[Rfam]
RNA: MAT2A 3'UTR stem loop E
RNA sequence: CCAGCAUUCCCAGGUGUGUCAAGCUAUCCUACAGAGUAACCCUGGGUUGGACCCUCAGGGGGUCUGG
Numbered sequence: 001c002c003a004g005c006a007u008u009c010c011c012a013g014g015u016g017u018g019u020c021a022a023g024c025u026a027u028c029c030u031a032c033a034g035a036g037u038a039a040c041c042c043u044g045g046g047u048u049g050g051a052c053c054c055u056c057a058g059g060g061g062g063u064c065u066g067g
Stems, first nucleotide, its partner, number of pairs: 001067004006063006014056001016054001018052001019045003023041001025039001027031001